[Rfam]
RNA: Small nucleolar RNA Z256
Organism: Oryza punctata
RNA sequence: AUUUGCCAAUCAUGCUGACACCAUCCACUCGAGCUAGGCUGACUAGCCUCCCUGAGUACACCAUCAACAGCUGGGCUGAGCUGAAGGCCCAGUU
Number, nucleotide and partner (000 for none) at each position: 001a000002u000003u092004u091005g090006c000007c087008a000009a000010u000011c000012a000013u000014g000015c000016u000017g000018a000019c000020a000021c000022c000023a000024u000025c000026c000027a000028c000029u000030c000031g000032a000033g000034c000035u000036a000037g000038g000039c000040u000041g000042a000043c000044u000045a000046g000047c000048c000049u000050c000051c000052c000053u000054g000055a000056g000057u000058a000059c000060a000061c000062c000063a000064u000065c000066a000067a000068c000069a000070g000071c000072u000073g000074g000075g000076c000077u000078g000079a000080g000081c000082u000083g000084a000085a000086g000087g007088c000089c000090c005091a004092g003093u000094u000